[Rfam]
RNA sequence: UUCUUAUCAAGAGAGGUGGAGGGACUGGCCCUUUGAAGCCUCGGCAACAGACUGGUUUUCAGUACUGUGCCAAAUCCAGAUAGCGUUUAGCUAGAAGAUAAGAA
Dot-bracket structure: ((((((((....(((((...(((.[[[[)))......)))))((((.((.((((.....))))..))))))...(]]]].((((.....))))..)))))))))

SAM riboswitch aptamer (S box leader): a 104-nucleotide RNA from Virgibacillus sp. MSP4-1. Pairs were carried over by alignment from the consensus structure, which is taken from published work.